[Rfam]
RNA sequence: AUUCGAUAAGGGCAAACCCCGAGUGAUCGGGGGACGCAAAGGGAAGGGUCUUUCAACGUACAGGGACGUACGGGGGCACAGAGGCAGUGUCCCUUAA
Numbered sequence: 001a002u003u004c005g006a007u008a009a010g011g012g013c014a015a016a017c018c019c020c021g022a023g024u025g026a027u028c029g030g031g032g033g034a035c036g037c038a039a040a041g042g043g044a045a046g047g048g049u050c051u052u053u054c055a056a057c058g059u060a061c062a063g064g065g066a067c068g069u070a071c072g073g074g075g076g077c078a079c080a081g082a083g084g085c086a087g088u089g090u091c092c093c094u095u096a097a
Stems, first nucleotide, its partner, number of pairs: 012037002017032006040094004045090001047088001048085006